RNA sequence: CCCGCCACAGUGCGUGUCUGAUACAGUGACUAUACAUUGUCCAGUGGAGGCUCAUAGUGACCCAGCUCUAGGAAACAGGGAUGCCUUGCUUAAUGGGCAUUUCUGUGCCGAAAGGACUGGAACAAUU
Numbered sequence: 001c002c003c004g005c006c007a008c009a010g011u012g013c014g015u016g017u018c019u020g021a022u023a024c025a026g027u028g029a030c031u032a033u034a035c036a037u038u039g040u041c042c043a044g045u046g047g048a049g050g051c052u053c054a055u056a057g058u059g060a061c062c063c064a065g066c067u068c069u070a071g072g073a074a075a076c077a078g079g080g081a082u083g084c085c086u087u088g089c090u091u092a093a094u095g096g097g098c099a100u101u102u103c104u105g106u107g108c109c110g111a112a113a114g115g116a117c118u119g120g121a122a123c124a125a126u127u
Base pairs, nucleotide, nucleotide: 005047006046007045008044010042021031022029062120063119064118065117066115067114069112071109072108076105077104078103079102080101081100084097085096086095
This 127-nucleotide RNA sequence from Danionella cerebrum belongs to the Rfam family "Small nucleolar RNA SNORA65". The family has 14 seed sequences and 1,089 matches in Rfam 15.1. U65 belongs to the H/ACA class of snoRNAs which are thought to guide the sites of modification of uridines to pseudouridines. The family's consensus secondary structure was predicted with RNAalifold. NCBI's taxonomy places the organism under Eukaryota, Euteleostomi, Osteoglossocephalai, Ostariophysi, Danionella. A search with the family's covariance model found it, with a score of 85 bits. The literature on the family includes a 2001 paper in EMBO J by Huttenhofer et al., "RNomics: an experimental approach that identifies 201 candidates for novel, small, non-messenger RNAs in mouse".